[Rfam]
A member of the RNA family "Small nucleolar RNA Z102/R77" from Selaginella moellendorffii, 83 nucleotides long. Pairs were carried over by alignment from the consensus structure, which was predicted with PFOLD. Rfam classes the family as a C/D-box small nucleolar RNA. It scores 45 bits against the family's covariance model. For this family Rfam cites "The high diversity of snoRNAs in plants: identification and comparative study of 120 snoRNA genes from Oryza sativa" (Chen et al., Nucleic Acids Res, 2003). Gene Ontology terms of the family: nucleolus and RNA processing. Clan: SNORD44 clan. Rfam 15.1 lists 1,346 matches to the family in 224 species.
RNA sequence: GUGUGAAAUGAUGUUUGAUUUUGUUUCCCUAUUGGCCUGAAUCGCCAGCGUGAUGGCUUGAGAAACAUGGUGCCUGAUCACAC
Numbered sequence: 001g002u003g004u005g006a007a008a009u010g011a012u013g014u015u016u017g018a019u020u021u022u023g024u025u026u027c028c029c030u031a032u033u034g035g036c037c038u039g040a041a042u043c044g045c046c047a048g049c050g051u052g053a054u055g056g057c058u059u060g061a062g063a064a065a066c067a068u069g070g071u072g073c074c075u076g077a078u079c080a081c082a083c
Stems, first nucleotide, its partner, number of pairs: 002082004044057003